[Rfam]
RNA sequence: UUCUUAUCAAGAGCAGGCGGAGGGAUGAGCCCGAUGAAGCCCGGCAACCGACUCGUUAUGAGCACGGUGCUAAUUCUCACAACAGAUAUGUUGACAGAUAAGAA
Number, nucleotide and partner (000 for none) at each position: 001u104002u103003c102004u101005u100006a099007u098008c097009a000010a000011g000012a000013g042014c000015a000016g041017g040018c039019g000020g000021a000022g032023g031024g030025a000026u079027g078028a077029g076030c024031c023032c022033g000034a000035u000036g000037a000038a000039g018040c017041c016042c013043g071044g070045c069046a068047a000048c067049c066050g063051a000052c000053u061054c000055g000056u000057u000058a000059u000060g000061a053062g000063c050064a000065c000066g049067g048068u046069g045070c044071u043072a000073a000074u000075u096076c029077u028078c027079a026080c093081a092082a091083c090084a089085g000086a000087u000088a000089u084090g083091u082092u081093g080094a000095c000096a075097g008098a007099u006100a005101a004102g003103a002104a001

The family of this 104-nucleotide sequence from Bacillaceae bacterium SAS-127 is "SAM riboswitch aptamer (S box leader)".
A search with the family's covariance model found it, with a score of 81 bits.